Rfam assigns this 195-nucleotide sequence from Anopheles coluzzii to the family "drz-agam-2-2 ribozyme". For this family Rfam cites "Widespread occurrence of self-cleaving ribozymes" (Webb et al., Science, 2009).
RNA sequence: UUUAGUUUUAGCUCUGUAAUGGGAUGGGAUCCGAAGCCCCAUUGAGGGAUAAUACAGGCUCUCCCAUCCAACUCCUAUUCCAACACGUCCUCGUCGUACAGAGUGGUAACAUGUGUCACCACAUAUCCAAGCUUGGGUACACGGGCUUGACCCAACCCCUUGGGCGGAUGGUGGCACAUGGCGAACCAGGAGGGG
Numbered sequence: 001u002u003u004a005g006u007u008u009u010a011g012c013u014c015u016g017u018a019a020u021g022g023g024a025u026g027g028g029a030u031c032c033g034a035a036g037c038c039c040c041a042u043u044g045a046g047g048g049a050u051a052a053u054a055c056a057g058g059c060u061c062u063c064c065c066a067u068c069c070a071a072c073u074c075c076u077a078u079u080c081c082a083a084c085a086c087g088u089c090c091u092c093g094u095c096g097u098a099c100a101g102a103g104u105g106g107u108a109a110c111a112u113g114u115g116u117c118a119c120c121a122c123a124u125a126u127c128c129a130a131g132c133u134u135g136g137g138u139a140c141a142c143g144g145g146c147u148u149g150a151c152c153c154a155a156c157c158c159c160u161u162g163g164g165c166g167g168a169u170g171g172u173g174g175c176a177c178a179u180g181g182c183g184a185a186c187c188a189g190g191a192g193g194g195g
Stems, first nucleotide, its partner, number of pairs: 011104007022069008031058002073195004078191002081189001085097003089106002110180006117173004125169004133155006157164002